[Rfam]
RNA sequence: AGGAGGAAGCACCAAGUGGUGAAGACACAUUUAGAAUGGUGUUUACGAAUUGUCGCCGAGAGAUUAUGCUCGUGUGUUGAAAACACAUAUU
Number, nucleotide and partner (000 for none) at each position: 001a000002g000003g000004a000005g000006g000007a000008a043009g042010c041011a040012c039013c038014a030015a000016g028017u027018g026019g000020u000021g000022a000023a000024g000025a000026c018027a017028c016029a000030u014031u000032u000033a000034g000035a000036a000037u000038g013039g012040u011041g010042u009043u008044u000045a000046c000047g000048a000049a000050u000051u000052g000053u080054c079055g000056c000057c076058g000059a000060g073061a000062g000063a000064u000065u000066a000067u000068g000069c000070u000071c000072g000073u060074g000075u000076g057077u000078u000079g054080a053081a000082a000083a000084c000085a000086c000087a000088u000089a000090u000091u000
The family of this 91-nucleotide sequence from Coprococcus sp. CAG:782 is "GA-cis RNA". It scores 35 bits against the family's covariance model. Lineage of the source: Bacteria > Bacillota > Clostridia > Lachnospiraceae > Coprococcus. Rfam classes the family as a small RNA. The family's consensus secondary structure is taken from published work.